[Rfam]
RNA sequence: CGACCUGAAAUCAGGCGAGAUUACCCGCUGAACUUAAGCAUAUUAUUAAGCGGUGGAAAAGAAAAUAACAAUGAUUCCCUUAGUAACGGCGAGUGAACAGGGAAGAGCUCAAAGUGGAAAUCGAAGAUUCUUGACUGAAUCUUCGAGUUGUAGCCUCGAGAGGCGUUACCAGUGGAGGCGCAGGGAGAAGUUUCUUGGAAAAGAACAUCAGAGAGGGUGAGAGUCCCGUAUUUGCCCUGUGUCCCUAUGUUCCACGGACGGUACGCCUUUAUAGAGUCGCGUUCAUCGGGAUUUGAGCGCAAAAUGUGUGGUAAGUUUCACAUAAGGCUAAAUAUUGGCGCGAGACCGAUAGCAAACAAGUACCGUGAGGGAAAGAUGAAAAGUUCUUUGGAAAGAGAGUUAAAAGUGCCUGAAAUUGCUGAAAAGGAAG
Dot-bracket structure: .......................((((((.....((....))......))))).).........((....))...(((((.....((.....))....)))))..((((.....((.((.(((((((((........))))))))).)).)).......((((((.((((.((((((..((((((....(.((((......)))))..(...)..((.......))........)))))).........))))))....)))))))).))........(((((((........))))))).....(((((........)))))..)))).................................((....))...............((((....)))).................................
Shown here is a 430-nucleotide part of an RNA from Podilymbus podiceps, a member of the family "Eukaryotic large subunit ribosomal RNA". NCBI's taxonomy places the organism under Eukaryota, Teleostomi, Aves, Mirandornithes, Podilymbus. Rfam links the family to the GO terms structural constituent of ribosome and ribosome. Rfam 15.1 lists 107,465 matches to the family in 2,616 species.